A member of the RNA family "Streptococcus sRNA Spd-sr37" from Streptococcus mutans, 66 nucleotides long.

RNA sequence: CAAUAAUCAUGAUGGUCAAAGCUCAUGAGAAUUGUUGGUCUUUUGACCUACAAUUUUCGAGGGUUU
Numbered sequence: 001c002a003a004u005a006a007u008c009a010u011g012a013u014g015g016u017c018a019a020a021g022c023u024c025a026u027g028a029g030a031a032u033u034g035u036u037g038g039u040c041u042u043u044u045g046a047c048c049u050a051c052a053a054u055u056u057u058c059g060a061g062g063g064u065u066u
Stems, first nucleotide, its partner, number of pairs: 019066006033052003037048002
The family's RNA type in Rfam is small RNA. Rfam's curators put it in the seed alignment. The family's consensus secondary structure was predicted with WAR.